[Rfam]
RNA sequence: CUACCGGCGUCGAGAGGUGUCGGGAUGGCGGUGCAGAAGUCAGCAGAGGCCAUAUUAGGCGAGCCGUUGGCGCUGAAGGGC
Numbered sequence: 001c002u003a004c005c006g007g008c009g010u011c012g013a014g015a016g017g018u019g020u021c022g023g024g025a026u027g028g029c030g031g032u033g034c035a036g037a038a039g040u041c042a043g044c045a046g047a048g049g050c051c052a053u054a055u056u057a058g059g060c061g062a063g064c065c066g067u068u069g070g071c072g073c074u075g076a077a078g079g080g081c
Stems, first nucleotide, its partner, number of pairs: 001027001004023008040047002049081003058074004